[Rfam]
RNA sequence: CCCCUUCCAACCGGGCGGGCAUGCCCCUAUAUUCGUUGUGCCGGCGCAAGCCGGCUAUGGCGAUAAACGGUUGUCGGAAUAAACCCAUCGGACCCGGGGGCAGUACCCGGCGCCUCCACCGGAACCCAUCCUUCAGGGUGGGCUGCGGCGGGGGCGAAACAGGAUCGACGGGGGCGUAAAGGGCAUUCUUUCGCUCGGCAUGGUACCGCCGUCAUCGGACCAAACUUAUAGUUGCCAACGACAACUAUGCUCCGGUUGCUCAGGCCGCGUGAGCGGUUUGAUCUACGGAAAAUAAGUCCUAGCGGGUAGCACCGUCGGGCGGGGUUCGGAGGCACCUGGCAACAGAAGCCUCCACU
Numbered sequence: 001c002c003c004c005u006u007c008c009a010a011c012c013g014g015g016c017g018g019g020c021a022u023g024c025c026c027c028u029a030u031a032u033u034c035g036u037u038g039u040g041c042c043g044g045c046g047c048a049a050g051c052c053g054g055c056u057a058u059g060g061c062g063a064u065a066a067a068c069g070g071u072u073g074u075c076g077g078a079a080u081a082a083a084c085c086c087a088u089c090g091g092a093c094c095c096g097g098g099g100g101c102a103g104u105a106c107c108c109g110g111c112g113c114c115u116c117c118a119c120c121g122g123a124a125c126c127c128a129u130c131c132u133u134c135a136g137g138g139u140g141g142g143c144u145g146c147g148g149c150g151g152g153g154g155c156g157a158a159a160c161a162g163g164a165u166c167g168a169c170g171g172g173g174g175c176g177u178a179a180a181g182g183g184c185a186u187u188c189u190u191u192c193g194c195u196c197g198g199c200a201u202g203g204u205a206c207c208g209c210c211g212u213c214a215u216c217g218g219a220c221c222a223a224a225c226u227u228a229u230a231g232u233u234g235c236c237a238a239c240g241a242c243a244a245c246u247a248u249g250c251u252c253c254g255g256u257u258g259c260u261c262a263g264g265c266c267g268c269g270u271g272a273g274c275g276g277u278u279u280g281a282u283c284u285a286c287g288g289a290a291a292a293u294a295a296g297u298c299c300u301a302g303c304g305g306g307u308a309g310c311a312c313c314g315u316c317g318g319g320c321g322g323g324g325u326u327c328g329g330a331g332g333c334a335c336c337u338g339g340c341a342a343c344a345g346a347a348g349c350c351u352c353c354a355c356u
Base pairs, nucleotide, nucleotide: 040055041054042053043052044051059195060194061193062192063191069188070187072185073184074183075182084174085173086172088171089170090169094110095109096108097107098106111156112155113154114153115152116151117150196211197210198209199208201222202221203220206218207217322337323336324335325334328353329352330351331350332349333348

Shown here is a 356-nucleotide RNA from Ancylobacter novellus, a member of the family "Alphaproteobacteria transfer-messenger RNA". Clan: tRNA clan. The source organism's lineage runs through Bacteria, Pseudomonadati, Alphaproteobacteria, Xanthobacteraceae and Ancylobacter novellus. It is annotated as a non-coding RNA gene. Its family is annotated with RNA catabolic process in the Gene Ontology. The match comes from Rfam's covariance-model search (314 bits).